[Rfam]
RNA sequence: CGCUGCGACACGGGAGAGCGUCAUCCGGAAUCCGGAUGACCGCCGAAGGAGCAACACCUCCCCGUCAAACUCUCAGGCACCCGGACCGUGUCGCGACC
Numbered sequence: 001c002g003c004u005g006c007g008a009c010a011c012g013g014g015a016g017a018g019c020g021u022c023a024u025c026c027g028g029a030a031u032c033c034g035g036a037u038g039a040c041c042g043c044c045g046a047a048g049g050a051g052c053a054a055c056a057c058c059u060c061c062c063c064g065u066c067a068a069a070c071u072c073u074c075a076g077g078c079a080c081c082c083g084g085a086c087c088g089u090g091u092c093g094c095g096a097c098c
Base pairs, nucleotide, nucleotide: 006093007092008091009090010089011088012087013086020040021039022038023037024036025035026034042078043077044076045074046073049072050071051070056065057064
RNA: Glycine riboswitch aptamer